[Rfam]
This 119-nucleotide RNA sequence from Desulforamulus hydrothermalis belongs to the Rfam family "Molybdenum/Tungsten riboswitch aptamer (Moco RNA motif)". The family's consensus secondary structure is taken from published work.

RNA sequence: GUUUAUUUUUACCUCCGAGCCCUGGAUCCUGUGACAUCAGGUUAUGGUUCCAAGGCCGACAGGGUUUGCCUGGAAACGGGUAAGCCUCCCGUGCGGAAAGGAUGGUAGUUGUAUUUGCU
Numbered sequence: 001g002u003u004u005a006u007u008u009u010u011a012c013c014u015c016c017g018a019g020c021c022c023u024g025g026a027u028c029c030u031g032u033g034a035c036a037u038c039a040g041g042u043u044a045u046g047g048u049u050c051c052a053a054g055g056c057c058g059a060c061a062g063g064g065u066u067u068g069c070c071u072g073g074a075a076a077c078g079g080g081u082a083a084g085c086c087u088c089c090c091g092u093g094c095g096g097a098a099a100g101g102a103u104g105g106u107a108g109u110u111g112u113a114u115u116u117g118c119u
Base pairs, nucleotide, nucleotide: 003113012104014102015101016100019056020055021054023052024051025050026049028047029046033043034042035041062087063086064085065084066083067082068081069080070079071078072077088096089095